[Rfam]
RNA sequence: GAUUUUGAACAAUCUACUAAAUAACCAAGUGAAGAUAGGGUGACACCUUGCUUGGAUUGCAUACAUAAAUCCCGUUACGCUCUCCGUGAGAUAUUGCGGAGGGAUAAGUAAUUCUCUUUUGAGUAAUUGAAAGAGAUCAUGAAGUGUAAGAAGAUUGAGGGUGUAUGCAGUAUAGAGGUUGUGCGUAAUUAGACCAUUAUCAGACGGUGGCGGUGAUAAUAGACGCUUUCGGUGAAAGAAUAAUCUGGGUAGGCCUUGCGUAGCAGUAAGAACCGAACCAGAAAUGCUAAAUUAAACCGUUUUGCACUUGAGGUCGAGGGAUUGGCCAAUAACACCAAAGAUAAGUACAAGUAGCCCAAAAUGUGCAGAUAAAACAUUUGGAUAUGUUUAUGCUUAAAAUAUAUUUCUGAAUGUCGGGUGAAAGUUGGACGUAACCAGUCGUGCCUAGUCAUUUAAUCGCUACGGAAGUUAUAGGGUCGCUCCUUAUGGCUCAGACCGUGGUAGGCUAUCGGUCAACAAGUUGCGUACAAUCGAAGUAGAGCGAAGGCUCAUUUAAUAGAUUGUUUAAAG
Numbered sequence: 001g002a003u004u005u006u007g008a009a010c011a012a013u014c015u016a017c018u019a020a021a022u023a024a025c026c027a028a029g030u031g032a033a034g035a036u037a038g039g040g041u042g043a044c045a046c047c048u049u050g051c052u053u054g055g056a057u058u059g060c061a062u063a064c065a066u067a068a069a070u071c072c073c074g075u076u077a078c079g080c081u082c083u084c085c086g087u088g089a090g091a092u093a094u095u096g097c098g099g100a101g102g103g104a105u106a107a108g109u110a111a112u113u114c115u116c117u118u119u120u121g122a123g124u125a126a127u128u129g130a131a132a133g134a135g136a137u138c139a140u141g142a143a144g145u146g147u148a149a150g151a152a153g154a155u156u157g158a159g160g161g162u163g164u165a166u167g168c169a170g171u172a173u174a175g176a177g178g179u180u181g182u183g184c185g186u187a188a189u190u191a192g193a194c195c196a197u198u199a200u201c202a203g204a205c206g207g208u209g210g211c212g213g214u215g216a217u218a219a220u221a222g223a224c225g226c227u228u229u230c231g232g233u234g235a236a237a238g239a240a241u242a243a244u245c246u247g248g249g250u251a252g253g254c255c256u257u258g259c260g261u262a263g264c265a266g267u268a269a270g271a272a273c274c275g276a277a278c279c280a281g282a283a284a285u286g287c288u289a290a291a292u293u294a295a296a297c298c299g300u301u302u303u304g305c306a307c308u309u310g311a312g313g314u315c316g317a318g319g320g321a322u323u324g325g326c327c328a329a330u331a332a333c334a335c336c337a338a339a340g341a342u343a344a345g346u347a348c349a350a351g352u353a354g355c356c357c358a359a360a361a362u363g364u365g366c367a368g369a370u371a372a373a374a375c376a377u378u379u380g381g382a383u384a385u386g387u388u389u390a391u392g393c394u395u396a397a398a399a400u401a402u403a404u405u406u407c408u409g410a411a412u413g414u415c416g417g418g419u420g421a422a423a424g425u426u427g428g429a430c431g432u433a434a435c436c437a438g439u440c441g442u443g444c445c446u447a448g449u450c451a452u453u454u455a456a457u458c459g460c461u462a463c464g465g466a467a468g469u470u471a472u473a474g475g476g477u478c479g480c481u482c483c484u485u486a487u488g489g490c491u492c493a494g495a496c497c498g499u500g501g502u503a504g505g506c507u508a509u510c511g512g513u514c515a516a517c518a519a520g521u522u523g524c525g526u527a528c529a530a531u532c533g534a535a536g537u538a539g540a541g542c543g544a545a546g547g548c549u550c551a552u553u554u555a556a557u558a559g560a561u562u563g564u565u566u567a568a569a570g
Base pairs, nucleotide, nucleotide: 008566009565012562015559018556020554021553025055026054027053028052029051037048038047039046058169059168060167061166062165075111076110077109078108081102082101083100084099085098086097087096088095089094113136114135115134116133117132118131119130120129121128122127138146139145140144178532180530188522190520195512197344198343199342200341206336207335208334209333210300211299212298213297214296226238227237228236229235244282245281246280247279248278252274253273255270256269257268261289262288263287264286303367304366305365306364307363313326314325315324316323317322348424354419355418356417357416359414406495407494408493409492428444446508447507448506458505461501465497468491470488471487472486473485474484475483476482539550540549541548542547
RNA: ROOL RNA